[Rfam]
Purine riboswitch aptamer: a 100-nucleotide RNA from Oceanobacillus picturae.
RNA sequence: CAACAAUUAAAUACGGAACCUCAUAUAUUUCUGAAGAUAUGGUUUGGAAGUCUCUACCCGGCGCCGUAAAUGCUGGACUAUGAGGGGAGAUGAAUCGUUA
Numbered sequence: 001c002a003a004c005a006a007u008u009a010a011a012u013a014c015g016g017a018a019c020c021u022c023a024u025a026u027a028u029u030u031c032u033g034a035a036g037a038u039a040u041g042g043u044u045u046g047g048a049a050g051u052c053u054c055u056a057c058c059c060g061g062c063g064c065c066g067u068a069a070a071u072g073c074u075g076g077a078c079u080a081u082g083a084g085g086g087g088a089g090a091u092g093a094a095u096c097g098u099u100a
Stems, first nucleotide, its partner, number of pairs: 019085007029049007058076006

Rfam describes the family as follows. Riboswitches are metabolite binding domains within certain messenger RNAs that serve as precision sensors for their corresponding targets.
Rfam links the family to the GO term purine nucleobase biosynthetic process.
The base pairs follow the family's consensus structure, which is taken from published work.
It scores 78 bits against the family's covariance model.